RNA sequence: GGGGGUGAUCGGUUUCGACUCGGGACGGUAGUCCCAGGAGAAGCGGGCCGAGGAUCCAAGGUCAACUCGUAAACGACCCUUGGAAAACAACAAGUGCCAAUUCUAAGCGCACUGACUUCGCUCUUGCUGCCUGAGCAGUAACCGAAGGGUCAGACCGGGAGUGUCUCCGUCCCGGACCCUGGCCUCGUUAAGGGGACUAACCCGCUGAGACUUGUCUCAGGGCUCAGCGGGGACAUCAACUGAGGCUGGGCCUGUCUGCAACAUGCUGAUGUGAGUGCAGGGGCCGAGUAGAACGACAUCAUCAGCUGCGCCCGGAGAAGACCUGGUUCGCUGCUCGAGGACGCGGGUUCGAUUCCCGCCACCUCCACCG
Numbered sequence: 001g002g003g004g005g006u007g008a009u010c011g012g013u014u015u016c017g018a019c020u021c022g023g024g025a026c027g028g029u030a031g032u033c034c035c036a037g038g039a040g041a042a043g044c045g046g047g048c049c050g051a052g053g054a055u056c057c058a059a060g061g062u063c064a065a066c067u068c069g070u071a072a073a074c075g076a077c078c079c080u081u082g083g084a085a086a087a088c089a090a091c092a093a094g095u096g097c098c099a100a101u102u103c104u105a106a107g108c109g110c111a112c113u114g115a116c117u118u119c120g121c122u123c124u125u126g127c128u129g130c131c132u133g134a135g136c137a138g139u140a141a142c143c144g145a146a147g148g149g150u151c152a153g154a155c156c157g158g159g160a161g162u163g164u165c166u167c168c169g170u171c172c173c174g175g176a177c178c179c180u181g182g183c184c185u186c187g188u189u190a191a192g193g194g195g196a197c198u199a200a201c202c203c204g205c206u207g208a209g210a211c212u213u214g215u216c217u218c219a220g221g222g223c224u225c226a227g228c229g230g231g232g233a234c235a236u237c238a239a240c241u242g243a244g245g246c247u248g249g250g251c252c253u254g255u256c257u258g259c260a261a262c263a264u265g266c267u268g269a270u271g272u273g274a275g276u277g278c279a280g281g282g283g284c285c286g287a288g289u290a291g292a293a294c295g296a297c298a299u300c301a302u303c304a305g306c307u308g309c310g311c312c313c314g315g316a317g318a319a320g321a322c323c324u325g326g327u328u329c330g331c332u333g334c335u336c337g338a339g340g341a342c343g344c345g346g347g348u349u350c351g352a353u354u355c356c357c358g359c360c361a362c363c364u365c366c367a368c369c370g
Stems, first nucleotide, its partner, number of pairs: 001366007019339006027331001031329001034326005044314005049069004055084007124141007148184006155175006163197006201231009214246005249285005256280003261276002265306004273299001343359005
The family of this 370-nucleotide RNA from Microlunatus soli is "transfer-messenger RNA". The family's consensus secondary structure is taken from published work. About the family: Bacterial tmRNA, also known as 10Sa RNA or SsrA, is named for its dual tRNA and mRNA-like properties. The literature on the family includes a 1996 paper in RNA by Williams and Bartel, "Phylogenetic analysis of tmRNA secondary structure". Gene Ontology term of the family: RNA catabolic process. The family is grouped with related families in Rfam's "tRNA clan".